[Rfam]
RNA sequence: AGUUCGGUAGCUCAGCGGUAGAGCAACAGAAAAAUACUAUUCGCUAUGAAAAAGCAACAAUAGUUCCUAUGAAAAGAUCCAAACUGUGUGUCGCAGGUUCGAUCCCUGCCCGAACUA
Numbered sequence: 001a002g003u004u005c006g007g008u009a010g011c012u013c014a015g016c017g018g019u020a021g022a023g024c025a026a027c028a029g030a031a032a033a034a035u036a037c038u039a040u041u042c043g044c045u046a047u048g049a050a051a052a053a054g055c056a057a058c059a060a061u062a063g064u065u066c067c068u069a070u071g072a073a074a075a076g077a078u079c080c081a082a083a084c085u086g087u088g089u090g091u092c093g094c095a096g097g098u099u100c101g102a103u104c105c106c107u108g109c110c111c112g113a114a115c116u117a
Base pairs, nucleotide, nucleotide: 001116002115003114004113005112006111007110010024011023012022013021026087027086028085029084093109094108095107096106097105